Record summary: This 104-nucleotide RNA from Theobroma cacao belongs to the Rfam family "Small nucleolar RNA Z107/R87". The family's consensus secondary structure was predicted with RNAfold. Lineage of the source: Eukaryota > Gunneridae > rosids > malvids > Theobroma. For this family Rfam cites "Identification of 66 box C/D snoRNAs in Arabidopsis thaliana: extensive gene duplications generated multiple isoforms predicting new ribosomal RNA 2'-O-methylation sites" (Barneche et al., J Mol Biol, 2001). It scores 91 bits against the family's covariance model. Gene Ontology terms of the family: nucleolus and RNA processing. By type it is a C/D-box small nucleolar RNA.

RNA sequence: GAUCGCUGUGAUGACCACGUGAAAUUCAAGCUCAACAGACCGGAUUGCAGGCUUCUCUUCUUUGAGAAGUUUGCGUGUCGACCACCCCGCUGAACUGAGCGAUC
Numbered sequence: 001g002a003u004c005g006c007u008g009u010g011a012u013g014a015c016c017a018c019g020u021g022a023a024a025u026u027c028a029a030g031c032u033c034a035a036c037a038g039a040c041c042g043g044a045u046u047g048c049a050g051g052c053u054u055c056u057c058u059u060c061u062u063u064g065a066g067a068a069g070u071u072u073g074c075g076u077g078u079c080g081a082c083c084a085c086c087c088c089g090c091u092g093a094a095c096u097g098a099g100c101g102a103u104c
Base pairs, nucleotide, nucleotide: 001104002103003102004101005100006099